[Rfam]
RNA: 3'-terminal pseudoknot of CuYV/BPYV
Organism: Crinivirus pseudobetae
RNA sequence: CGUUUGGUCGAAUGCUACUAGAGCAGCCUGACCAAACUAGUAUUAGUAAAUAAAGG
Numbered sequence: 001c002g003u004u005u006g007g008u009c010g011a012a013u014g015c016u017a018c019u020a021g022a023g024c025a026g027c028c029u030g031a032c033c034a035a036a037c038u039a040g041u042a043u044u045a046g047u048a049a050a051u052a053a054a055g056g
Stems, first nucleotide, its partner, number of pairs: 002037008013025004027056003